The family of this 281-nucleotide sequence from Adiantum capillus-veneris is "RNase MRP". RNase MRP is an enzymatically active ribonucleoprotein with two distinct roles in eukaryotes. In mitochondria it plays a direct role in the initiation of mitochondrial DNA replication. In the nucleus it is involved in precursor rRNA processing, where it cleaves the internal transcribed spacer 1 between 18S and 5.8S rRNAs. Despite distinct functions, RNase MRP has been shown to be evolutionarily related to RNase P. Like eukaryotic RNase P, RNase MRP is not catalytically active without associated protein subunits. The organism belongs to Adiantum, within Eukaryota. The family has 66 seed sequences and 3,510 matches in Rfam 15.1. The family's consensus secondary structure is taken from published work. A search with the family's covariance model found it, with a score of 56 bits. By type it is a ribozyme.

[Rfam]
RNA sequence: GGGCAAGGAAGGAGGAGUGCUUCGGCUUCCCACCCUGCUUAUGCAGGCGGGCCGAGUGAAAGUCCCCGAGUUAGGGGGCCGCCUGUAGAGGGCGAGGCCUCCUUGCACAGAAAUGUGAGCCUAAAAGGGCAGACCUCCUUCCAUUUGGCGUUAGCUGGAUACUUGGGGCUGAGACAAAUGUGGAGCCCCUUUCCACUGGAACGUCAUAUCGGGGAGCAGUUGACUAUACCACAAUCAUGCACUCUCGCUUGCAAUAGAACGGGGCUUACUCCCUCCUUGCC
Numbered sequence: 001g002g003g004c005a006a007g008g009a010a011g012g013a014g015g016a017g018u019g020c021u022u023c024g025g026c027u028u029c030c031c032a033c034c035c036u037g038c039u040u041a042u043g044c045a046g047g048c049g050g051g052c053c054g055a056g057u058g059a060a061a062g063u064c065c066c067c068g069a070g071u072u073a074g075g076g077g078g079c080c081g082c083c084u085g086u087a088g089a090g091g092g093c094g095a096g097g098c099c100u101c102c103u104u105g106c107a108c109a110g111a112a113a114u115g116u117g118a119g120c121c122u123a124a125a126a127g128g129g130c131a132g133a134c135c136u137c138c139u140u141c142c143a144u145u146u147g148g149c150g151u152u153a154g155c156u157g158g159a160u161a162c163u164u165g166g167g168g169c170u171g172a173g174a175c176a177a178a179u180g181u182g183g184a185g186c187c188c189c190u191u192u193c194c195a196c197u198g199g200a201a202c203g204u205c206a207u208a209u210c211g212g213g214g215a216g217c218a219g220u221u222g223a224c225u226a227u228a229c230c231a232c233a234a235u236c237a238u239g240c241a242c243u244c245u246c247g248c249u250u251g252c253a254a255u256a257g258a259a260c261g262g263g264g265c266u267u268a269c270u271c272c273c274u275c276c277u278u279g280c281c
Stems, first nucleotide, its partner, number of pairs: 002281008011273002015244006023056001024053003035050006060267003064264004106117004119130004132205003139201005157191001166188004176181001246251001